[Rfam]
RNA sequence: AUGUGGGCUUAGCCGCGUGGUUACUUCGCUCACUCUGAACUCUCAUCGAAGAUUUCCUACCUUGAAACCACUGGCGCUGUCUUACACACUU
Numbered sequence: 001a002u003g004u005g006g007g008c009u010u011a012g013c014c015g016c017g018u019g020g021u022u023a024c025u026u027c028g029c030u031c032a033c034u035c036u037g038a039a040c041u042c043u044c045a046u047c048g049a050a051g052a053u054u055u056c057c058u059a060c061c062u063u064g065a066a067a068c069c070a071c072u073g074g075c076g077c078u079g080u081c082u083u084a085c086a087c088a089c090u091u
Stems, first nucleotide, its partner, number of pairs: 002086006012075004017071004025066004